[Rfam]
RNA sequence: AUCUCAGGUUUCUCUUCAAUCAAGCAUAAAUCUUUUUUGCCUUUUACUAAAGAUUUCAUUGGAGAAGAGAGAACGUUGAUGAGUUUACCUUAUUUUUUAUGGAGGCUUUGCACUUCAUGUUUC
Dot-bracket structure: ..((((..((((((((((.........((((((((.............))))))))...))))))...)))).......)))).................(.((((.(........).)))))
The family of this 123-nucleotide sequence from Clarias magur is "U5 spliceosomal RNA". The family's RNA type in Rfam is spliceosomal small nuclear RNA. Taxonomically the source falls in Clarias (Eukaryota, Opisthokonta, Metazoa, Teleostomi). The family's consensus secondary structure is taken from published work. Rfam links the family to the GO terms spliceosomal tri-snRNP complex assembly and U5 snRNP.